RNA sequence: AAGUGAUGAUGUUGAAGGGCGUGCCAAGAUGCGUUGUUCAACGGAGCUUUCAGGAGGGGUUGCACAGUGAAACCUCAACUUGGCUAAAGCAUUUGCUGAAAGAAAAUGUGCGUA
Numbered sequence: 001a002a003g004u005g006a007u008g009a010u011g012u013u014g015a016a017g018g019g020c021g022u023g024c025c026a027a028g029a030u031g032c033g034u035u036g037u038u039c040a041a042c043g044g045a046g047c048u049u050u051c052a053g054g055a056g057g058g059g060u061u062g063c064a065c066a067g068u069g070a071a072a073c074c075u076c077a078a079c080u081u082g083g084c085u086a087a088a089g090c091a092u093u094u095g096c097u098g099a100a101a102g103a104a105a106a107u108g109u110g111c112g113u114a
Stems, first nucleotide, its partner, number of pairs: 001049004011042006018035005024083004062111003088097003
RNA: drum RNA